[Rfam]
RNA sequence: GCGCGUCAGCGGGGUCGGUGAAAUUCCGAGCCGGCGGUGAGCGGCCCAACAGCCGCGAGUCCGCGACCCGUCCGCAGCCAGCGGACGGUUGACCUGGUGAGAAUCCAGGACCGACGGUUAGAGUCCGGAUGGGAGCAGACGCGU
Number, nucleotide and partner (000 for none) at each position: 001g000002c000003g142004c141005g140006u139007c138008a000009g136010c135011g000012g000013g000014g000015u000016c028017g027018g026019u000020g000021a000022a000023a000024u000025u000026c018027c017028g016029a000030g124031c123032c113033g112034g064035c063036g062037g061038u000039g000040a000041g000042c000043g000044g000045c000046c000047c000048a000049a000050c000051a000052g000053c000054c000055g000056c000057g000058a000059g111060u110061c037062c036063g035064c034065g000066a000067c000068c088069c087070g000071u000072c000073c000074g000075c000076a000077g000078c000079c000080a000081g000082c000083g000084g000085a000086c000087g069088g068089u000090u000091g000092a000093c109094c108095u107096g106097g105098u000099g000100a000101g000102a000103a000104u000105c097106c096107a095108g094109g093110a060111c059112c033113g032114a000115c127116g126117g125118u000119u000120a000121g000122a000123g031124u030125c117126c116127g115128g000129a000130u000131g000132g000133g000134a000135g010136c009137a000138g007139a006140c005141g004142c003143g000144u000

The record is a 144-nucleotide RNA from Glycomyces buryatensis, which matches "FMN riboswitch aptamer (RFN element)" in Rfam. Pairs were carried over by alignment from the consensus structure, which is taken from published work. Rfam links the family to the GO term FMN binding. The match comes from Rfam's covariance-model search (94 bits). NCBI's taxonomy places the organism under Bacteria, Bacillati, Actinomycetota, Glycomycetaceae, Glycomyces.